[Rfam]
RNA sequence: UGGAAUGCGUGGGCCUGGUGGCCCGGCCGGUCUUCAAAACCGGUUUGCGGGCGCGGUCGCGUCCGUGGCGGUUCGAUUCCCCCGCAUUCCG
Numbered sequence: 001u002g003g004a005a006u007g008c009g010u011g012g013g014c015c016u017g018g019u020g021g022c023c024c025g026g027c028c029g030g031u032c033u034u035c036a037a038a039a040c041c042g043g044u045u046u047g048c049g050g051g052c053g054c055g056g057u058c059g060c061g062u063c064c065g066u067g068g069c070g071g072u073u074c075g076a077u078u079c080c081c082c083c084g085c086a087u088u089c090c091g
Stems, first nucleotide, its partner, number of pairs: 001091009010025006026046001027043005048065005068082001070080002

Description: This 91-nucleotide RNA sequence from Rubrobacter radiotolerans belongs to the Rfam family "Selenocysteine transfer RNA". Lineage of the source: Bacteria > Bacillati > Rubrobacteria > Rubrobacteraceae > Rubrobacter.